Source information
c-di-AMP riboswitch aptamer (ydaO/yuaA leader): a 145-nucleotide RNA sequence from Paenibacillus sp. FSL R7-0331. About the family: This family represents a conserved RNA structure found upstream of the ydaO and yuaA genes in Bacillus subtilis and related genes in other bacteria. It scores 68 bits against the family's covariance model.
[Rfam]
RNA sequence: UCAACAGUCGUGCCGAGUUCCCUUACGAAAUAAGGGAAACGGGGGAACCGAUUUUGGGUGAAUUGACCUCCUAUUCACAGAGGGGUCAUAGGGGACCUUCAACCGAACCCUUAAGCUAACCUCGUAGGCAUUUGGAAGGGGUAUU
Numbered sequence: 001u002c003a004a005c006a007g008u009c010g011u012g013c014c015g016a017g018u019u020c021c022c023u024u025a026c027g028a029a030a031u032a033a034g035g036g037a038a039a040c041g042g043g044g045g046a047a048c049c050g051a052u053u054u055u056g057g058g059u060g061a062a063u064u065g066a067c068c069u070c071c072u073a074u075u076c077a078c079a080g081a082g083g084g085g086u087c088a089u090a091g092g093g094g095a096c097c098u099u100c101a102a103c104c105g106a107a108c109c110c111u112u113a114a115g116c117u118a119a120c121c122u123c124g125u126a127g128g129c130a131u132u133u134g135g136a137a138g139g140g141g142u143a144u145u
Stems, first nucleotide, its partner, number of pairs: 011130004018038008039125006050054001056110003064088007091104002
Gene Ontology terms of the family: cyclic-di-AMP binding and regulation of gene expression.